Shown here is a 38-nucleotide RNA sequence from Clostridium sp. CAG:226, a member of the family "Selenocysteine insertion sequence 4". It scores 58 bits against the family's covariance model. The base pairs follow the family's consensus structure, which was predicted with PFOLD. Rfam links the family to the GO term selenocysteine incorporation. It is annotated as a cis-regulatory element. The organism belongs to Clostridium, within Bacteria.

RNA sequence: GGCACCUGCACGCGUUGCGGUGCAACGAUGGUUAAGGA
Numbered sequence: 001g002g003c004a005c006c007u008g009c010a011c012g013c014g015u016u017g018c019g020g021u022g023c024a025a026c027g028a029u030g031g032u033u034a035a036g037g038a
Stems, first nucleotide, its partner, number of pairs: 005031002013027006